A member of the RNA family "Selenocysteine transfer RNA" from Sulfobacillus harzensis, 93 nucleotides long. The family has 109 seed sequences and 4,211 matches in Rfam 15.1. NCBI's taxonomy places the organism under Bacteria, Bacillota, Clostridia, Eubacteriales, Sulfobacillus. A search with the family's covariance model found it, with a score of 60 bits.
RNA sequence: GACGGUCAUCGGGCCCUGGAGGGCUCCCUCGGCUGCAAACCGAGUGUCUGAAGACCCGGUCUUCAGAGUUGGGUUCGAUUCCCAAGGACCGUC
Numbered sequence: 001g002a003c004g005g006u007c008a009u010c011g012g013g014c015c016c017u018g019g020a021g022g023g024c025u026c027c028c029u030c031g032g033c034u035g036c037a038a039a040c041c042g043a044g045u046g047u048c049u050g051a052a053g054a055c056c057c058g059g060u061c062u063u064c065a066g067a068g069u070u071g072g073g074u075u076c077g078a079u080u081c082c083c084a085a086g087g088a089c090c091g092u093c
Stems, first nucleotide, its partner, number of pairs: 001093007009085001011026006028044005047067005070084004